[Rfam]
RNA sequence: UGGGGUGAAACCCAUGUGGGUCUCAUACUUUGGAAAUGGAUCCCAAAUAAAGUAGUGAGACCCACAUGGGUUUCACCCAA
Numbered sequence: 001u002g003g004g005g006u007g008a009a010a011c012c013c014a015u016g017u018g019g020g021u022c023u024c025a026u027a028c029u030u031u032g033g034a035a036a037u038g039g040a041u042c043c044c045a046a047a048u049a050a051a052g053u054a055g056u057g058a059g060a061c062c063c064a065c066a067u068g069g070g071u072u073u074c075a076c077c078c079a080a
Stems, first nucleotide, its partner, number of pairs: 001080001003078016023058003026054007
Rfam assigns this 80-nucleotide RNA sequence from Medicago truncatula to the family "MIR5269 microRNA precursor family". Rfam links the family to the GO terms RISC complex and miRNA-mediated post-transcriptional gene silencing. Pairs were carried over by alignment from the consensus structure, which was predicted with RNAalifold. Lineage of the source: Eukaryota > Viridiplantae > fabids > Papilionoideae > Medicago. The match comes from Rfam's covariance-model search (74 bits).